[Rfam]
RNA sequence: AGGGGGCUGGUGACUAUCCAACUGGGAGGAAGCUCUGCCCACUCAAUUACGUAGAUUUCCUGAGAAGGAAUAAACAAAGUAUAGAAACGACACGGUUCCAAAAAAUAUGACUAUGAUAUUUUAAAAUUGAGGAUUUUUGGAAAAUCGAUGAAACGACUUUGUUUUGCGUGAGUGCAAGCAUUAUGCGCUAAGCUGAAUGUCACCGAAAUUACAGAAGGCAGGCUAUAGCCCCCA
Numbered sequence: 001a002g003g004g005g006g007c008u009g010g011u012g013a014c015u016a017u018c019c020a021a022c023u024g025g026g027a028g029g030a031a032g033c034u035c036u037g038c039c040c041a042c043u044c045a046a047u048u049a050c051g052u053a054g055a056u057u058u059c060c061u062g063a064g065a066a067g068g069a070a071u072a073a074a075c076a077a078a079g080u081a082u083a084g085a086a087a088c089g090a091c092a093c094g095g096u097u098c099c100a101a102a103a104a105a106u107a108u109g110a111c112u113a114u115g116a117u118a119u120u121u122u123a124a125a126a127u128u129g130a131g132g133a134u135u136u137u138u139g140g141a142a143a144a145u146c147g148a149u150g151a152a153a154c155g156a157c158u159u160u161g162u163u164u165u166g167c168g169u170g171a172g173u174g175c176a177a178g179c180a181u182u183a184u185g186c187g188c189u190a191a192g193c194u195g196a197a198u199g200u201c202a203c204c205g206a207a208a209u210u211a212c213a214g215a216a217g218g219c220a221g222g223c224u225a226u227a228g229c230c231c232c233c234a
Base pairs, nucleotide, nucleotide: 002233003232004231005230006229007228008227009204010203011202012201013200014199018025019024031224032223033222035221036220037219038218039217040174041173042172043171048170049169050168051167052166057070058069059068060067072165073164077159078158079157080156093147094146095145096142097141098140099139100138101137102136103135116127117126178186179185180184

Rfam assigns this 234-nucleotide sequence from Methanococcus vannielii to the family "Archaeal RNase P".
Pairs were carried over by alignment from the consensus structure, which is taken from published work.
Ribonuclease P (RNase P) is a ubiquitous endoribonuclease, found in archaea, bacteria and eukarya as well as chloroplasts and mitochondria.
A reference for the family is Brown (1999), "The Ribonuclease P Database", Nucleic Acids Res.